[Rfam]
RNA sequence: GUUACGGCUAUCCAAAAUGUCGCUUGGUUUGUGGUUCCAAGCUAGUCUAAAUAGUAGCCUAGUUCGCAGCCAAAUUAAAAGUGCUCGGAUGAGUGGCGCUGUUUAUGAUGAACGUCCCACGUGCU
Numbered sequence: 001g002u003u004a005c006g007g008c009u010a011u012c013c014a015a016a017a018u019g020u021c022g023c024u025u026g027g028u029u030u031g032u033g034g035u036u037c038c039a040a041g042c043u044a045g046u047c048u049a050a051a052u053a054g055u056a057g058c059c060u061a062g063u064u065c066g067c068a069g070c071c072a073a074a075u076u077a078a079a080a081g082u083g084c085u086c087g088g089a090u091g092a093g094u095g096g097c098g099c100u101g102u103u104u105a106u107g108a109u110g111a112a113c114g115u116c117c118c119a120c121g122u123g124c125u
Stems, first nucleotide, its partner, number of pairs: 001013001022042006031120004045109003048105003057097003062090002068085003